RNA sequence: AAUAGAGUUUUAUAGGGUUUUGCAAUUAUUAAUGAUUGGCCUGGUCCGAGAUAAAACCCACAACAUAGUUUUUGUUGUGAACACGGAAGGACAAAAACCUGGGAGAU
Numbered sequence: 001a002a003u004a005g006a007g008u009u010u011u012a013u014a015g016g017g018u019u020u021u022g023c024a025a026u027u028a029u030u031a032a033u034g035a036u037u038g039g040c041c042u043g044g045u046c047c048g049a050g051a052u053a054a055a056a057c058c059c060a061c062a063a064c065a066u067a068g069u070u071u072u073u074g075u076u077g078u079g080a081a082c083a084c085g086g087a088a089g090g091a092c093a094a095a096a097a098c099c100u101g102g103g104a105g106a107u
Base pairs, nucleotide, nucleotide: 007057008056009055010054011053012052015047016046020044021043022041023038024037025036026035027034028033059079060078061077062076063075064074065073082102084105088100089099090098